A member of the RNA family "Small nucleolar RNA U19" from Brassica carinata, 149 nucleotides long.
The base pairs follow the family's consensus structure, which was predicted with WAR.
It scores 63 bits against the family's covariance model.
The organism belongs to Brassica, within Eukaryota.
The literature on the family includes a 2002 paper in Curr Biol by Marker et al., "Experimental RNomics: identification of 140 candidates for small non-messenger RNAs in the plant Arabidopsis thaliana".
Rfam links the family to the GO terms RNA processing and nucleolus.

[Rfam]
RNA sequence: AUUUGGCUUAGUUAGGAGGCAAACAUCAAUCUGAUCAAUCAAUACUUUUCUGUAUUGUUUGUGGUAAAGGCUUUUUGGUUUCUUUUGGAGGAGGAGCUUCUGUUUUAAUUCAGUUCAACCUUCUUCUUCACAAAAAGCUUCAGACAUAA
Numbered sequence: 001a002u003u004u005g006g007c008u009u010a011g012u013u014a015g016g017a018g019g020c021a022a023a024c025a026u027c028a029a030u031c032u033g034a035u036c037a038a039u040c041a042a043u044a045c046u047u048u049u050c051u052g053u054a055u056u057g058u059u060u061g062u063g064g065u066a067a068a069g070g071c072u073u074u075u076u077g078g079u080u081u082c083u084u085u086u087g088g089a090g091g092a093g094g095a096g097c098u099u100c101u102g103u104u105u106u107a108a109u110u111c112a113g114u115u116c117a118a119c120c121u122u123c124u125u126c127u128u129c130a131c132a133a134a135a136a137g138c139u140u141c142a143g144a145c146a147u148a149a
Stems, first nucleotide, its partner, number of pairs: 004021002007018003034065004042058003046054001074143002077140002080137001084134004090126007098118001